[Rfam]
RNA sequence: UCAGGGUGAGGUAGUAGGUUGUAUAGUUUGGUGGGAGGGAUCAAACCCUGUUCAGGUGAUAACUAUACAGUCUAUUGCCUUCCUUUG
Dot-bracket structure: (.((((.((((((((((((((((((((.....(((..........)))..(......)...)))))))))))))))))))))))).)
Numbered sequence: 001u002c003a004g005g006g007u008g009a010g011g012u013a014g015u016a017g018g019u020u021g022u023a024u025a026g027u028u029u030g031g032u033g034g035g036a037g038g039g040a041u042c043a044a045a046c047c048c049u050g051u052u053c054a055g056g057u058g059a060u061a062a063c064u065a066u067a068c069a070g071u072c073u074a075u076u077g078c079c080u081u082c083c084u085u086u087g
Stems, first nucleotide, its partner, number of pairs: 001087001003085004008081020033048003051058001
Shown here is an 87-nucleotide sequence from Triplophysa tibetana, a member of the family "let-7 microRNA precursor family". A search with the family's covariance model found it, with a score of 68 bits. Gene Ontology terms of the family: RISC complex and miRNA-mediated post-transcriptional gene silencing. On this family, see Rougvie, Nat Rev Genet 2001: "Control of developmental timing in animals". Taxonomically the source falls in Triplophysa (Eukaryota, Eumetazoa, Actinopteri, Cypriniformes).